[Rfam]
RNA sequence: GUCGGUGACCGGGCCCCUCUGGCGGACGAGAAAGCGUCCGUGAUGUCGGAACCGACG
Numbered sequence: 001g002u003c004g005g006u007g008a009c010c011g012g013g014c015c016c017c018u019c020u021g022g023c024g025g026a027c028g029a030g031a032a033a034g035c036g037u038c039c040g041u042g043a044u045g046u047c048g049g050a051a052c053c054g055a056c057g
Base pairs, nucleotide, nucleotide: 005052006051009049010048011047012046022041023040024039025038026037027036028035

The family of this 57-nucleotide RNA from Microvirga flocculans is "terC RNA". The family's consensus secondary structure is taken from published work. A search with the family's covariance model found it, with a score of 48 bits. By type it is a cis-regulatory element.